This 268-nucleotide RNA from Medicago truncatula belongs to the Rfam family "MIR2655 microRNA precursor family".
[Rfam]
RNA sequence: CCCAUAUGUAAUAAAAGGUCCGUUUAGGUCAUUUAAUUUUAUUUAAAGUAUCGGUUUGGUCCCUUUUGUUAAUUUAAUUAAAAAAAAAACGUUAAGUUUAGGUACCAAACUAAUACUAAUUAAAUAAGUUAAAUGACCAAACUAGUACAAUUAAAUAAGUUAAGGGACCAAAAUUUAACGUUUUUUUUAAUUAAAUUAACAAAAUGGACCAUACCAAUACUUUAAAUAAAGUUAAGGGAUCUAAACAGAUCUUUUAUUACUUAUGAGA
Numbered sequence: 001c002c003c004a005u006a007u008g009u010a011a012u013a014a015a016a017g018g019u020c021c022g023u024u025u026a027g028g029u030c031a032u033u034u035a036a037u038u039u040u041a042u043u044u045a046a047a048g049u050a051u052c053g054g055u056u057u058g059g060u061c062c063c064u065u066u067u068g069u070u071a072a073u074u075u076a077a078u079u080a081a082a083a084a085a086a087a088a089a090c091g092u093u094a095a096g097u098u099u100a101g102g103u104a105c106c107a108a109a110c111u112a113a114u115a116c117u118a119a120u121u122a123a124a125u126a127a128g129u130u131a132a133a134u135g136a137c138c139a140a141a142c143u144a145g146u147a148c149a150a151u152u153a154a155a156u157a158a159g160u161u162a163a164g165g166g167a168c169c170a171a172a173a174u175u176u177a178a179c180g181u182u183u184u185u186u187u188u189a190a191u192u193a194a195a196u197u198a199a200c201a202a203a204a205u206g207g208a209c210c211a212u213a214c215c216a217a218u219a220c221u222u223u224a225a226a227u228a229a230a231g232u233u234a235a236g237g238g239a240u241c242u243a244a245a246c247a248g249a250u251c252u253u254u255u256a257u258u259a260c261u262u263a264u265g266a267g268a
Stems, first nucleotide, its partner, number of pairs: 003265004008260001023245003027241003032236012045223003
The base pairs follow the family's consensus structure, which was predicted with RNAalifold.